Description
This 85-nucleotide RNA sequence belongs to the Rfam family "c-di-GMP-II-GCG riboswitch aptamer".
Nucleotides: 085
Stems, first nucleotide, its partner, number of pairs: 001085001003083001005081007013060003022054006029047001038072002041067004
Number, partner (000 for none) and nucleotide at each position: 001085g002000a003083c004000g005081a006080g007079c008078a009077u010076g011075g012000a013060g014059g015058c016000g017000a018000c019000g020000a021000u022054g023053c024052g025051c026050g027049g028000a029047c030000c031000c032000c033000g034000a035000c036000c037000c038072g039071g040000c041067c042066g043065c044064c045000g046000c047029g048000a049027c050026c051025g052024c053023g054022c055000u056000g057000a058015g059014c060013c061000a062000c063000u064044g065043g066042c067041g068000a069000g070000c071039c072038c073000g074000a075011c076010c077009g078008u079007g080006c081005u082000g083003g084000a085001u
Overview:
Gene Ontology terms of the family: regulation of gene expression and cyclic-di-GMP binding. Pairs were carried over by alignment from the consensus structure, which is taken from published work. The sequence is in the family's curated seed alignment.